[Rfam]
RNA sequence: GGUCAUGAGUCUCAGCGACAAGCCCCGGCUUGCUGAGCGGCAACCCUCCACCGCGGUGGGGUGCUCCGGGUGACGACCGGGCCGUCGCGACAACGCGUCGGCAAGCGCGGAUC
Numbered sequence: 001g002g003u004c005a006u007g008a009g010u011c012u013c014a015g016c017g018a019c020a021a022g023c024c025c026c027g028g029c030u031u032g033c034u035g036a037g038c039g040g041c042a043a044c045c046c047u048c049c050a051c052c053g054c055g056g057u058g059g060g061g062u063g064c065u066c067c068g069g070g071u072g073a074c075g076a077c078c079g080g081g082c083c084g085u086c087g088c089g090a091c092a093a094c095g096c097g098u099c100g101g102c103a104a105g106c107g108c109g110g111a112u113c
Stems, first nucleotide, its partner, number of pairs: 001078004009038001011037006021030002039065003044061003048056002081102004086097004